The family of this 173-nucleotide sequence from Streptomyces sp. A1136 is "c-di-AMP riboswitch aptamer (ydaO/yuaA leader)". A search with the family's covariance model found it, with a score of 58 bits. Rfam links the family to the GO terms regulation of gene expression and cyclic-di-AMP binding. Taxonomically the source falls in Streptomyces (Bacteria, Actinomycetes, Kitasatosporales, Streptomycetaceae).

RNA sequence: GAACCGCACCCGACUAUUCACGCGCGCGGCAGGAGCGGGGGAACCAGGUAAGCCGCUGUUCCGGAGCUUCCCGCCGGAACGGCUCGGGGUGAAGUCGUGCGUCGCUGGCGCGUACGGCCGGACAUCUCCAGUCCGAACCCGACAGCUCACCUCGCAGGCGACGGAGAGGAAUU
Number, nucleotide and partner (000 for none) at each position: 001g000002a000003a000004c000005c032006g000007c000008a000009c000010c000011c000012g000013a000014c000015u000016a000017u000018u000019c000020a000021c000022g000023c000024g000025c000026g000027c000028g000029g000030c000031a000032g005033g000034a000035g155036c154037g153038g152039g151040g150041g000042a000043a000044c000045c086046a000047g000048g000049u000050a000051a000052g000053c000054c000055g000056c000057u000058g000059u000060u000061c000062c000063g000064g000065a000066g000067c000068u000069u000070c000071c000072c000073g000074c000075c000076g000077g000078a000079a000080c000081g000082g000083c000084u000085c000086g045087g140088g139089g138090u000091g000092a000093a000094g000095u117096c116097g115098u114099g113100c112101g111102u000103c000104g000105c000106u000107g000108g000109c000110g000111c101112g100113u099114a098115c097116g096117g095118c000119c000120g134121g133122a132123c131124a000125u000126c000127u000128c000129c000130a000131g123132u122133c121134c120135g000136a000137a000138c089139c088140c087141g000142a000143c000144a000145g000146c000147u000148c000149a000150c040151c039152u038153c037154g036155c035156a000157g000158g000159c000160g000161a000162c000163g000164g000165a000166g000167a000168g000169g000170a000171a000172u000173u000